[Rfam]
RNA sequence: GCACCCGCCUCGUUCCCGUUCCUCGCUGUGCACUUGGUGCUACAGCACAGCAGUGGAAAUCCAGAUGGGUUCUUCUCCACUGGUUUGGGACUCAUCUCUACACCUCUGCAACACCA
Numbered sequence: 001g002c003a004c005c006c007g008c009c010u011c012g013u014u015c016c017c018g019u020u021c022c023u024c025g026c027u028g029u030g031c032a033c034u035u036g037g038u039g040c041u042a043c044a045g046c047a048c049a050g051c052a053g054u055g056g057a058a059a060u061c062c063a064g065a066u067g068g069g070u071u072c073u074u075c076u077c078c079a080c081u082g083g084u085u086u087g088g089g090a091c092u093c094a095u096c097u098c099u100a101c102a103c104c105u106c107u108g109c110a111a112c113a114c115c116a
Base pairs, nucleotide, nucleotide: 001040002039003038004037005036013030050109051108052107053106055104063097064096065095066094067093068092069091070090077088078087079086
Rfam assigns this 116-nucleotide RNA from Hippolais icterina to the family "Small nucleolar RNA SNORA55". The family's RNA type in Rfam is H/ACA-box small nucleolar RNA. About the family: ACA55 is a member of the H/ACA class of snoRNA that guide the sites of modification of uridines to pseudouridines.